[Rfam]
RNA sequence: AUAGGAAGCAUCCAAAGGGAUCGCAUUGAUCCUUUAUUUUUCAACCCCUAAAACAAAUCACAAUUCGGGAUCAUGCUAUCCCUUUGGACUCCUCCUU
Numbered sequence: 001a002u003a004g005g006a007a008g009c010a011u012c013c014a015a016a017g018g019g020a021u022c023g024c025a026u027u028g029a030u031c032c033u034u035u036a037u038u039u040u041u042c043a044a045c046c047c048c049u050a051a052a053a054c055a056a057a058u059c060a061c062a063a064u065u066c067g068g069g070a071u072c073a074u075g076c077u078a079u080c081c082c083u084u085u086g087g088a089c090u091c092c093u094c095c096u097u
Stems, first nucleotide, its partner, number of pairs: 003096004008091001011088011023076004028072005036065001

The family of this 97-nucleotide RNA from Hibiscus syriacus is "mir-393 microRNA precursor family".
Rfam links the family to the GO terms RISC complex and miRNA-mediated post-transcriptional gene silencing.
The literature on the family includes a 2012 paper in J Plant Physiol by Kruszka et al., "Role of microRNAs and other sRNAs of plants in their changing environments".